[Rfam]
The record is a 135-nucleotide RNA sequence from Neodrepanis coruscans, which matches "Small nucleolar RNA SNORA84" in Rfam. A reference for the family is Marker et al. (2002), "Experimental RNomics: identification of 140 candidates for small non-messenger RNAs in the plant Arabidopsis thaliana", Curr Biol.
RNA sequence: GCCCUGUGGUUGCUGGGCCCUGCUGUGUGUGUGCAGUGGCUCAGUGGGUGCAGAGGGGCCGACAGUGACACUGUGAUUGAUGCGUGGGGUCUGUGAGCCCUGAGCAGCCCCCACAGCCCGGUCACAGUCACACCC
Number, nucleotide and partner (000 for none) at each position: 001g059002c058003c057004c056005u000006g000007u050008g049009g000010u047011u046012g045013c044014u043015g042016g041017g040018c000019c000020c036021u035022g034023c033024u000025g000026u000027g000028u000029g000030u000031g000032u000033g023034c022035a021036g020037u000038g000039g000040c017041u016042c015043a014044g013045u012046g011047g010048g000049u008050g007051c000052a000053g000054a000055g000056g004057g003058g002059c001060c000061g000062a000063c000064a000065g000066u000067g000068a000069c000070a000071c127072u000073g125074u124075g123076a122077u121078u120079g000080a000081u000082g117083c116084g114085u113086g112087g111088g000089g109090u000091c107092u106093g105094u104095g000096a000097g000098c000099c000100c000101u000102g000103a000104g094105c093106a092107g091108c000109c089110c000111c087112c086113a085114c084115a000116g083117c082118c000119c000120g078121g077122u076123c075124a074125c073126a000127g071128u000129c000130a000131c000132a000133c000134c000135c000